A member of the RNA family "Xanthine riboswitch aptamer (NMT1 RNA)" from Acinetobacter baylyi, 60 nucleotides long. The source organism's lineage runs through Bacteria, Pseudomonadati, Moraxellales, Moraxellaceae and Acinetobacter baylyi. Rfam links the family to the GO term purine nucleobase binding. The sequence is in the family's curated seed alignment.
RNA sequence: UAUGAGAGUAGAAGCUGUCAACAUGAUGACGUUGUCACUAUGUGGGUCAUUGCUCUAGGU
Numbered sequence: 001u002a003u004g005a006g007a008g009u010a011g012a013a014g015c016u017g018u019c020a021a022c023a024u025g026a027u028g029a030c031g032u033u034g035u036c037a038c039u040a041u042g043u044g045g046g047u048c049a050u051u052g053c054u055c056u057a058g059g060u
Base pairs, nucleotide, nucleotide: 005056006055007054008053009052010051015045019046021043022042023041024037025036026035027034

Pairs were carried over by alignment from the consensus structure, which is taken from published work.